[Rfam]
The record is a 240-nucleotide sequence from Streptomyces sp. TSRI0281, which matches "Streptomyces sRNA 4677" in Rfam. The family's RNA type in Rfam is small RNA. The pairing is the family consensus, mapped onto this sequence. A reference for the family is Hindra et al. (2014), "Complex intra-operonic dynamics mediated by a small RNA in Streptomyces coelicolor", PLoS One.
RNA sequence: GGUCCCGGUGGGUCACGACGUAAAAGCUUUUCAAGGACCGAGAAGAAAGAACCCUUCCCCACCCCUGUCCCCGGUCAUCUGCGGGGCGUCACUCACACGGGUGAGGUUUGCCAACUGGACUGGAUUUCGGGCUGGUUGGCUGGCAUAUGCUCACGCUCACCACCCCAGACAUGCGACGACCCCCGACCGGGCUGCAAUCCCGAUCGAGGGUCUGGCCGCCGAGGAAGUAGGAGCUUCCCG
Number, nucleotide and partner (000 for none) at each position: 001g000002g000003u000004c000005c000006c000007g220008g219009u218010g217011g000012g000013u000014c000015a000016c000017g076018a075019c074020g000021u000022a000023a000024a000025a000026g000027c000028u000029u000030u000031u000032c000033a000034a000035g000036g000037a000038c000039c000040g000041a000042g000043a000044a000045g000046a000047a000048a000049g000050a000051a000052c000053c000054c000055u000056u000057c000058c000059c000060c000061a000062c000063c000064c000065c000066u000067g000068u000069c000070c000071c000072c000073g000074g019075u018076c017077a000078u000079c000080u000081g000082c000083g000084g000085g000086g000087c000088g000089u104090c103091a102092c101093u100094c099095a000096c000097a000098c000099g094100g093101g092102u091103g090104a089105g000106g000107u000108u000109u000110g000111c000112c000113a000114a000115c000116u000117g000118g000119a000120c000121u153122g152123g151124a000125u000126u000127u000128c000129g000130g000131g000132c000133u000134g000135g000136u000137u000138g000139g000140c000141u000142g000143g000144c000145a000146u000147a000148u000149g000150c000151u123152c122153a121154c000155g000156c000157u000158c000159a000160c000161c000162a000163c000164c000165c000166c000167a000168g000169a000170c000171a000172u000173g000174c000175g000176a000177c000178g212179a211180c210181c209182c208183c000184c206185g205186a204187c000188c000189g200190g199191g198192c000193u000194g000195c000196a000197a000198u191199c190200c189201c000202g000203a000204u186205c185206g184207a000208g182209g181210g180211u179212c178213u000214g000215g000216c000217c010218g009219c008220c007221g000222a000223g238224g237225a236226a235227g234228u000229a000230g000231g000232a000233g000234c227235u226236u225237c224238c223239c000240g000
The match comes from Rfam's covariance-model search (106 bits). Taxonomically the source falls in Streptomyces (Bacteria, Bacillati, Actinomycetota, Actinomycetes).